[Rfam]
RNA sequence: AGCUUUGCACAGUGGCAGUUUUGUAGGCAAUGAGGUUUAUCCAAGUUGUGAUUAUUGCUAAUUGAAAACUUUUCCCAAUACCCCACCACGAUGACUUGAAAUAUAGUCUGCAAUGGCAAUUUUUGACAGUCUCAUGGAGA
Numbered sequence: 001a002g003c004u005u006u007g008c009a010c011a012g013u014g015g016c017a018g019u020u021u022u023g024u025a026g027g028c029a030a031u032g033a034g035g036u037u038u039a040u041c042c043a044a045g046u047u048g049u050g051a052u053u054a055u056u057g058c059u060a061a062u063u064g065a066a067a068a069c070u071u072u073u074c075c076c077a078a079u080a081c082c083c084c085a086c087c088a089c090g091a092u093g094a095c096u097u098g099a100a101a102u103a104u105a106g107u108c109u110g111c112a113a114u115g116g117c118a119a120u121u122u123u124u125g126a127c128a129g130u131c132u133c134a135u136g137g138a139g140a
Base pairs, nucleotide, nucleotide: 021051022050023049024048026047027046028045034042035041086116087115090111093108094107095106096105130140131139132138133137
RNA: U4 spliceosomal RNA